RNA sequence: CCUGGGGUUCACACCCCAGGCUAUGAUCUGCAGUCCCUAUGGGACU
Numbered sequence: 001c002c003u004g005g006g007g008u009u010c011a012c013a014c015c016c017c018a019g020g021c022u023a024u025g026a027u028c029u030g031c032a033g034u035c036c037c038u039a040u041g042g043g044a045c046u
Base pairs, nucleotide, nucleotide: 001020002019003018004017005016006015007014008013033045034044035043036042037041
RNA: Acido-Lenti-1 RNA